RNA sequence: AUACCUUUCUCGGCCUUUUGGCUAAGUAAGAUCAAGUGUAGUAUCUGUUCUUCUGAUCAGUUUAAUAUCUGAUCCGUGGUCCAUCGGGCCACGAUGAUUUUUUUAAUUAAUUUUUCAGGGCUACGGAGGGGUCAUAUGGGUAGGCUUGCCUACUCGACUCUUCCAGCGUUGCCUCCGUAUUGCACUGCAGCGGAGCGUGGUGCGGCCCAU
Numbered sequence: 001a002u003a004c005c006u007u008u009c010u011c012g013g014c015c016u017u018u019u020g021g022c023u024a025a026g027u028a029a030g031a032u033c034a035a036g037u038g039u040a041g042u043a044u045c046u047g048u049u050c051u052u053c054u055g056a057u058c059a060g061u062u063u064a065a066u067a068u069c070u071g072a073u074c075c076g077u078g079g080u081c082c083a084u085c086g087g088g089c090c091a092c093g094a095u096g097a098u099u100u101u102u103u104u105a106a107u108u109a110a111u112u113u114u115u116c117a118g119g120g121c122u123a124c125g126g127a128g129g130g131g132u133c134a135u136a137u138g139g140g141u142a143g144g145c146u147u148g149c150c151u152a153c154u155c156g157a158c159u160c161u162u163c164c165a166g167c168g169u170u171g172c173c174u175c176c177g178u179a180u181u182g183c184a185c186u187g188c189a190g191c192g193g194a195g196c197g198u199g200g201u202g203c204g205g206c207c208c209a210u
Stems, first nucleotide, its partner, number of pairs: 008031003012023004055074006076092007126163008141152004166203006173195006
RNA: U2 spliceosomal RNA